Shown here is an 81-nucleotide sequence from Alicyclobacillaceae bacterium I2511, a member of the family "ZMP/ZTP riboswitch aptamer (pfl RNA motif)". It scores 55 bits against the family's covariance model. NCBI's taxonomy places the organism under Bacteria, Bacillati, Bacillota, Caryophanales, Alicyclobacillaceae.
RNA sequence: GAAGGGUCGCACAACUGGCGGACAAUGGGGAGUUCACCCCUGGGGAGUGCGAUGGAAAGGCCGACCGCCUGGGCGCUCAGA
Numbered sequence: 001g002a003a004g005g006g007u008c009g010c011a012c013a014a015c016u017g018g019c020g021g022a023c024a025a026u027g028g029g030g031a032g033u034u035c036a037c038c039c040c041u042g043g044g045g046a047g048u049g050c051g052a053u054g055g056a057a058a059g060g061c062c063g064a065c066c067g068c069c070u071g072g073g074c075g076c077u078c079a080g081a
Stems, first nucleotide, its partner, number of pairs: 006053007015044002017069005027040004060074003